RNA sequence: AGGCUAUGAAGACAAAAAUCAUUUCUCGAUCCUGAGUUAUGGACCCUUAUUCAUCUGUGAUGACCUCUUUUAUGCGUGUCUGAGACGCCUC
Numbered sequence: 001a002g003g004c005u006a007u008g009a010a011g012a013c014a015a016a017a018a019u020c021a022u023u024u025c026u027c028g029a030u031c032c033u034g035a036g037u038u039a040u041g042g043a044c045c046c047u048u049a050u051u052c053a054u055c056u057g058u059g060a061u062g063a064c065c066u067c068u069u070u071u072a073u074g075c076g077u078g079u080c081u082g083a084g085a086c087g088c089c090u091c
Base pairs, nucleotide, nucleotide: 001090002089003088004087

Record summary:
A member of the RNA family "small nucleolar RNA snoR126" from Phtheirospermum japonicum, 91 nucleotides long. For this family Rfam cites "Mining small RNA sequencing data: a new approach to identify small nucleolar RNAs in Arabidopsis" (Chen and Wu, Nucleic Acids Res, 2009). The base pairs follow the family's consensus structure, which was predicted with RNAalifold. The match comes from Rfam's covariance-model search (57 bits).